[Rfam]
RNA sequence: CUCCCUAUAUUCAUAAAGAGUAUAGAGCGGUAGAGUUAACUCUACCCAAAACCCUUUGAAUUGACUGGAAACCCCUAAUACUAAUCAAACUACAGCAUAAGGAUGAAAUAAACCUAAGUGCGAAUGUUACGAAAGUAGAAAAAAUUGAUUAGUUGGUAUAAGGUUAAACCCUAAGUACUGAUAAACAAUGGGCAAUCAGCAGCGAAGCCUCGAAUAGAGGAACGUUCAACGACUAUCCGUAAUGGAGUACACCUAAGUAGGUGGAAGUGGAGGGCAUCCUAAAAUAGGAUGGUGAUAUAGUCUGCGCUUAUAGGAAACUAUAAG
Numbered sequence: 001c002u003c004c005c006u007a008u009a010u011u012c013a014u015a016a017a018g019a020g021u022a023u024a025g026a027g028c029g030g031u032a033g034a035g036u037u038a039a040c041u042c043u044a045c046c047c048a049a050a051a052c053c054c055u056u057u058g059a060a061u062u063g064a065c066u067g068g069a070a071a072c073c074c075c076u077a078a079u080a081c082u083a084a085u086c087a088a089a090c091u092a093c094a095g096c097a098u099a100a101g102g103a104u105g106a107a108a109u110a111a112a113c114c115u116a117a118g119u120g121c122g123a124a125u126g127u128u129a130c131g132a133a134a135g136u137a138g139a140a141a142a143a144a145u146u147g148a149u150u151a152g153u154u155g156g157u158a159u160a161a162g163g164u165u166a167a168a169c170c171c172u173a174a175g176u177a178c179u180g181a182u183a184a185a186c187a188a189u190g191g192g193c194a195a196u197c198a199g200c201a202g203c204g205a206a207g208c209c210u211c212g213a214a215u216a217g218a219g220g221a222a223c224g225u226u227c228a229a230c231g232a233c234u235a236u237c238c239g240u241a242a243u244g245g246a247g248u249a250c251a252c253c254u255a256a257g258u259a260g261g262u263g264g265a266a267g268u269g270g271a272g273g274g275c276a277u278c279c280u281a282a283a284a285u286a287g288g289a290u291g292g293u294g295a296u297a298u299a300g301u302c303u304g305c306g307c308u309u310a311u312a313g314g315a316a317a318c319u320a321u322a323a324g
Base pairs, nucleotide, nucleotide: 005025006024007023008022009021010020011019012018029041030040031039052274053273054272055271057269058268062201063200065199066198067197068196073192074191075190202225203224208219210217229303231302232301233300234299235298277289278288279287280286281285309322310321311320312319313318

Rfam assigns this 324-nucleotide RNA sequence from Bacillus phage vB_BceH_LY2 to the family "Group I catalytic intron". A search with the family's covariance model found it, with a score of 85 bits. A reference for the family is Cech (1990), "Self-splicing of group I introns", Annu Rev Biochem.